[Rfam]
RNA sequence: UUUCCCAGCAUUGCACCCAGGGUCUCUCUGCAGACAUUGCACCUGGAGCUGCCCCAAAUAAACCCCAAAU
Numbered sequence: 001u002u003u004c005c006c007a008g009c010a011u012u013g014c015a016c017c018c019a020g021g022g023u024c025u026c027u028c029u030g031c032a033g034a035c036a037u038u039g040c041a042c043c044u045g046g047a048g049c050u051g052c053c054c055c056a057a058a059u060a061a062a063c064c065c066c067a068a069a070u
Stems, first nucleotide, its partner, number of pairs: 006051004017046004022035004

A member of the RNA family "U1A polyadenylation inhibition element (PIE)" from Serinus canaria, 70 nucleotides long.
Rfam links the family to the GO term regulation of mRNA polyadenylation.
The literature on the family includes a 2004 paper in Biochemistry by Clerte and Hall, "Global and Local Dynamics of the U1A Polyadenylation Inhibition Element (PIE) RNA and PIE RNA-U1A Complexes".
Rfam classes the family as a cis-regulatory element.
Rfam 15.1 lists 510 matches to the family in 331 species.
Lineage of the source: Eukaryota > Chordata > Archelosauria > Australaves > Serinus.
This family represents the U1A polyadenylation inhibition element (PIE). PIE is a regulatory RNA which is responsible for the regulation of the length of the polyA tail of the U1A pre-mRNA. The PIE is located in the U1A mRNA 3' UTR. PIE adopts a U-shaped structure, with binding sites for a single U1A protein at each bend and when complexed with the two proteins it blocks activity of poly(A) polymerase (PAP), and inhibits its activity.